[Rfam]
RNA sequence: UAGUGUUACAGCUCUUUUAGAAUUUGUCUAGCAGGGUUUCUGGGUUUUGCUGGAAAGCUCCU
Numbered sequence: 001u002a003g004u005g006u007u008a009c010a011g012c013u014c015u016u017u018u019a020g021a022a023u024u025u026g027u028c029u030a031g032c033a034g035g036g037u038u039u040c041u042g043g044g045u046u047u048u049g050c051u052g053g054a055a056a057g058c059u060c061c062u
Base pairs, nucleotide, nucleotide: 034059035058037056038055039054040053041052042051043050
RNA: U7 small nuclear RNA